[Rfam]
RNA sequence: CUAUGAUCUGAAAUAUAGAUCAUGGCAAAGGAG
Numbered sequence: 001c002u003a004u005g006a007u008c009u010g011a012a013a014u015a016u017a018g019a020u021c022a023u024g025g026c027a028a029a030g031g032a033g
Stems, first nucleotide, its partner, number of pairs: 001025005008018002
RNA: L31-Firmicutes ribosomal protein leader